[Rfam]
RNA: mir-172 microRNA precursor family
Organism: Turnera subulata
RNA sequence: UUUUUUGCAGGUGCAGCAUUAUUAAGAUUCACAUGCAAAUGCAUGGCAGCAAGUGUUGUGUAUAUUGUAUAUUUAUACCGUCUGCUCAUUUAAGCUGAGAAAUGAGAAUCUUGAUGAUGCUGCAUCGGCCAUAAA
Numbered sequence: 001u002u003u004u005u006u007g008c009a010g011g012u013g014c015a016g017c018a019u020u021a022u023u024a025a026g027a028u029u030c031a032c033a034u035g036c037a038a039a040u041g042c043a044u045g046g047c048a049g050c051a052a053g054u055g056u057u058g059u060g061u062a063u064a065u066u067g068u069a070u071a072u073u074u075a076u077a078c079c080g081u082c083u084g085c086u087c088a089u090u091u092a093a094g095c096u097g098a099g100a101a102a103u104g105a106g107a108a109u110c111u112u113g114a115u116g117a118u119g120c121u122g123c124a125u126c127g128g129c130c131a132u133a134a135a
Base pairs, nucleotide, nucleotide: 010126011125012124013123014122015121016120017119018118019117020116021115022114023113024112025111026110027109028108029107030106032104033103
Dot-bracket structure: .........(((((((((((((((((((((.((.....................................................................)).))))))))))))))))))))).........